Rfam assigns this 175-nucleotide RNA from Blautia sp. CAG:37 to the family "Lysine riboswitch aptamer". A search with the family's covariance model found it, with a score of 100 bits. Riboswitches are metabolite binding domains within certain messenger RNAs that serve as precision sensors for their corresponding targets.
RNA sequence: GAAGUGGAUAGAGGUCGCAUUACUUCAAGAGUACCUUUUCGGAUGCCUCAGCAGCAAAAGAAGAAGAGGAAAAGGGAAGAAUGCCGAAGGACAUCCGGCGCUGAACCGGUAUGCUCCUGGGCGCAGGUUGAAAAAAUCUGCGACUGUCAUCGAGAGAUGGAGAGCUAUCUGAUCA
Numbered sequence: 001g002a003a004g005u006g007g008a009u010a011g012a013g014g015u016c017g018c019a020u021u022a023c024u025u026c027a028a029g030a031g032u033a034c035c036u037u038u039u040c041g042g043a044u045g046c047c048u049c050a051g052c053a054g055c056a057a058a059a060g061a062a063g064a065a066g067a068g069g070a071a072a073a074g075g076g077a078a079g080a081a082u083g084c085c086g087a088a089g090g091a092c093a094u095c096c097g098g099c100g101c102u103g104a105a106c107c108g109g110u111a112u113g114c115u116c117c118u119g120g121g122c123g124c125a126g127g128u129u130g131a132a133a134a135a136a137u138c139u140g141c142g143a144c145u146g147u148c149a150u151c152g153a154g155a156g157a158u159g160g161a162g163a164g165c166u167a168u169c170u171g172a173u174c175a
Stems, first nucleotide, its partner, number of pairs: 006170006017084005023079004034069007088118004092113003095109004119145002122142008147160005